[Rfam]
RNA sequence: AUAGUCAUGUAGGGGAACUGGUGGUCCAGUUGAGAAAUUAUCUUGAAGGUAAUGACCCUUUGAACCUGAUCUGGUUAAUACCAGCGGAGGGAACAUAUUUUAACAACAU
Numbered sequence: 001a002u003a004g005u006c007a008u009g010u011a012g013g014g015g016a017a018c019u020g021g022u023g024g025u026c027c028a029g030u031u032g033a034g035a036a037a038u039u040a041u042c043u044u045g046a047a048g049g050u051a052a053u054g055a056c057c058c059u060u061u062g063a064a065c066c067u068g069a070u071c072u073g074g075u076u077a078a079u080a081c082c083a084g085c086g087g088a089g090g091g092a093a094c095a096u097a098u099u100u101u102a103a104c105a106a107c108a109u
Base pairs, nucleotide, nucleotide: 007096008095009094010093011059012058013057014056016053017030018029019028020027021026038052039051040050041049042048043047065090066089067088071084072083073082074081
A member of the RNA family "TPP riboswitch aptamer (THI element)" from Bacillus sp. DNRA2, 109 nucleotides long. A reference for the family is Serganov et al. (2006), "Structural basis for gene regulation by a thiamine pyrophosphate-sensing riboswitch", Nature. The match comes from Rfam's covariance-model search (76 bits). About the family: Vitamin B(1) in its active form thiamin pyrophosphate (TPP) is an essential coenzyme that is synthesised by coupling of pyrimidine and thiazole moieties in bacteria.